[Rfam]
RNA sequence: CUAAGAGAACGCCUCUGUCGUUACCCAACUAGUUUGGAUACGAGAAUGCGUUUGUUGA
Numbered sequence: 001c002u003a004a005g006a007g008a009a010c011g012c013c014u015c016u017g018u019c020g021u022u023a024c025c026c027a028a029c030u031a032g033u034u035u036g037g038a039u040a041c042g043a044g045a046a047u048g049c050g051u052u053u054g055u056u057g058a
Stems, first nucleotide, its partner, number of pairs: 007053006018043004025037003